[Rfam]
RNA sequence: ACAACAACAAUAAAAACCAGAUAACUCAUAACAAAAAUAAUAUUCGGCUCCACACACAAUAAAAAUAAAACGUGCGCGGCCAAGCAAACUGAUUUUUUUGGAGAAUGGGUACUCACCCUGCGGACAGGAUGUCCGGCUGGAACCAGAGAAGAAUAAAAGUUGCUCAAGCAACCCGCCAGUCCAGAGCCGAAGAUAGGCCUUGAGUAUUGACCUAAGCUUCCAAAGCAAUCCGUUUGUUUUGAAACCCGGGAUGGGUUGGCUGAAUAGGCGACACUGUCGCCUCUGCCUACAAAAACAAGAAUAGCUCAGAAGAAGAAGAACAAGAAUCCAUUAAGGGGAGCCAUGGCUCCCCUUGAGCUUUCCUCUCUCAAUACCGCUCAU
Numbered sequence: 001a002c003a004a005c006a007a008c009a010a011u012a013a014a015a016a017c018c019a020g021a022u023a024a025c026u027c028a029u030a031a032c033a034a035a036a037a038u039a040a041u042a043u044u045c046g047g048c049u050c051c052a053c054a055c056a057c058a059a060u061a062a063a064a065a066u067a068a069a070a071c072g073u074g075c076g077c078g079g080c081c082a083a084g085c086a087a088a089c090u091g092a093u094u095u096u097u098u099u100g101g102a103g104a105a106u107g108g109g110u111a112c113u114c115a116c117c118c119u120g121c122g123g124a125c126a127g128g129a130u131g132u133c134c135g136g137c138u139g140g141a142a143c144c145a146g147a148g149a150a151g152a153a154u155a156a157a158a159g160u161u162g163c164u165c166a167a168g169c170a171a172c173c174c175g176c177c178a179g180u181c182c183a184g185a186g187c188c189g190a191a192g193a194u195a196g197g198c199c200u201u202g203a204g205u206a207u208u209g210a211c212c213u214a215a216g217c218u219u220c221c222a223a224a225g226c227a228a229u230c231c232g233u234u235u236g237u238u239u240u241g242a243a244a245c246c247c248g249g250g251a252u253g254g255g256u257u258g259g260c261u262g263a264a265u266a267g268g269c270g271a272c273a274c275u276g277u278c279g280c281c282u283c284u285g286c287c288u289a290c291a292a293a294a295a296c297a298a299g300a301a302u303a304g305c306u307c308a309g310a311a312g313a314a315g316a317a318g319a320a321c322a323a324g325a326a327u328c329c330a331u332u333a334a335g336g337g338g339a340g341c342c343a344u345g346g347c348u349c350c351c352c353u354u355g356a357g358c359u360u361u362c363c364u365c366u367c368u369c370a371a372u373a374c375c376g377c378u379c380a381u
Stems, first nucleotide, its partner, number of pairs: 046081002049078001051076001096225005112216001134189003137184004159172005243257005275370002279366001320361001322359001334353008
RNA: Pseudomonas sRNA CrcZ
Organism: Halopseudomonas phragmitis